Rfam assigns this 98-nucleotide RNA from Puma concolor to the family "mir-544 microRNA precursor family". Gene Ontology terms of the family: RISC complex and miRNA-mediated post-transcriptional gene silencing. A search with the family's covariance model found it, with a score of 70 bits.
RNA sequence: GUCACCUGGGGGUUCUGUUAAAAUGCAGAUUCUGAUUCAGUGGGUUUGGGAUGGGACUUGAGAUUCUCCCUUUAUAACAGGCUCCCAGGUGAUGCUGA
Numbered sequence: 001g002u003c004a005c006c007u008g009g010g011g012g013u014u015c016u017g018u019u020a021a022a023a024u025g026c027a028g029a030u031u032c033u034g035a036u037u038c039a040g041u042g043g044g045u046u047u048g049g050g051a052u053g054g055g056a057c058u059u060g061a062g063a064u065u066c067u068c069c070c071u072u073u074a075u076a077a078c079a080g081g082c083u084c085c086c087a088g089g090u091g092a093u094g095c096u097g098a
Stems, first nucleotide, its partner, number of pairs: 003091003009085003014081007021073003025069001027067003031063003
The organism belongs to Puma, within Eukaryota. Pairs were carried over by alignment from the consensus structure, which was predicted with RNAalifold.